[Rfam]
RNA sequence: AACUUAUCAAGAAUGGUGGAGGGACUGGCCCUACGAUACCAGGCAACCUAUUUAAGUUAGGUGCUAAUUCCAGCAGGUGAAGACCUGAAAGAUAAGCC
Numbered sequence: 001a002a003c004u005u006a007u008c009a010a011g012a013a014u015g016g017u018g019g020a021g022g023g024a025c026u027g028g029c030c031c032u033a034c035g036a037u038a039c040c041a042g043g044c045a046a047c048c049u050a051u052u053u054a055a056g057u058u059a060g061g062u063g064c065u066a067a068u069u070c071c072a073g074c075a076g077g078u079g080a081a082g083a084c085c086u087g088a089a090a091g092a093u094a095a096g097c098c
Base pairs, nucleotide, nucleotide: 003096004095005094006093007092008091014041015040016039017038021031022030023029025073026072027071028070042065043064044063045062047061048060050057051056069090074087075086076085077084078083

Notes:
The family of this 98-nucleotide RNA from Staphylococcus simulans is "SAM riboswitch aptamer (S box leader)". The base pairs follow the family's consensus structure, which is taken from published work. A reference for the family is Baird et al. (2012), "YbxF and YlxQ are bacterial homologs of L7Ae and bind K-turns but not K-loops", RNA. The source organism's lineage runs through Bacteria, Bacillati, Bacilli, Caryophanales and Staphylococcus. The SAM riboswitch is found upstream of a number of genes which code for proteins involved in methionine or cysteine biosynthesis in Gram-positive bacteria.